RNA sequence: GUAAGGACGACCUUACCUCUCAAUAUCAUCGGGGACGGCUCCA
Numbered sequence: 001g002u003a004a005g006g007a008c009g010a011c012c013u014u015a016c017c018u019c020u021c022a023a024u025a026u027c028a029u030c031g032g033g034g035a036c037g038g039c040u041c042c043a
Base pairs, nucleotide, nucleotide: 001016002015003014004013005012006011031042032041033040034039
RNA: Guanidine-II riboswitch aptamer (mini-ykkC)
Organism: Kangiella sp. HZ709